[Rfam]
RNA: mir-393 microRNA precursor family
RNA sequence: GGUGGAGACUUCCAAAGGGAUCGCAUUGAUCUAAUUCUUGCAUUCCCAUGCAGUUCUGGUUUUUUUAACCCUUUUUACUGCUUCACUGAUUUGGAUCAUGCGAUCCCUUAGGAAUUUUCCAU
Numbered sequence: 001g002g003u004g005g006a007g008a009c010u011u012c013c014a015a016a017g018g019g020a021u022c023g024c025a026u027u028g029a030u031c032u033a034a035u036u037c038u039u040g041c042a043u044u045c046c047c048a049u050g051c052a053g054u055u056c057u058g059g060u061u062u063u064u065u066u067a068a069c070c071c072u073u074u075u076u077a078c079u080g081c082u083u084c085a086c087u088g089a090u091u092u093g094g095a096u097c098a099u100g101c102g103a104u105c106c107c108u109u110a111g112g113a114a115u116u117u118u119c120c121a122u
Stems, first nucleotide, its partner, number of pairs: 002122005008116001010114004015109007023101004028097005